[Rfam]
RNA sequence: AUCCUGUCCAGCUACACCUAUAGCGAUAUAGGGUCGGAAAGCCACGGAUCUCCUUGAGAUGGCCGGGUUGCUAAG
Number, nucleotide and partner (000 for none) at each position: 001a000002u000003c000004c000005u000006g000007u000008c000009c000010a000011g000012c037013u036014a000015c000016a000017c032018c031019u030020a029021u028022a027023g000024c000025g000026a000027u022028a021029u020030a019031g018032g017033g000034u000035c000036g013037g012038a000039a000040a069041g068042c067043c066044a000045c065046g064047g063048a060049u059050c058051u057052c056053c000054u000055u000056g052057a051058g050059a049060u048061g000062g000063c047064c046065g045066g043067g042068u041069u040070g000071c000072u000073a000074a000075g000
Rfam assigns this 75-nucleotide sequence from Noviherbaspirillum sp. Root189 to the family "c-di-GMP-I riboswitch aptamer".